[Rfam]
RNA sequence: UUGUUCCUUUCUCCUAUGCAUUUUUCUUCUUUCUAAAGCUGAUGUAAAGAAGCAUUAGGCAUGGGAAAAUGGAGCUU
Number, nucleotide and partner (000 for none) at each position: 001u000002u000003g000004u000005u000006c000007c000008u000009u000010u068011c000012u066013c065014c064015u063016a062017u061018g060019c059020a000021u000022u000023u054024u000025u000026c052027u051028u050029c049030u048031u047032u046033c000034u000035a000036a000037a000038g000039c000040u000041g000042a000043u000044g000045u000046a032047a031048a030049g029050a028051a027052g026053c000054a023055u000056u000057a000058g000059g019060c018061a017062u016063g015064g014065g013066a012067a000068a010069a000070u000071g000072g000073a000074g000075c000076u000077u000
A member of the RNA family "mir-202 microRNA precursor family" from Aquarana catesbeiana, 77 nucleotides long. Lineage of the source: Eukaryota > Euteleostomi > Sarcopterygii > Dipnotetrapodomorpha > Aquarana. The base pairs follow the family's consensus structure, which was predicted with RNAalifold.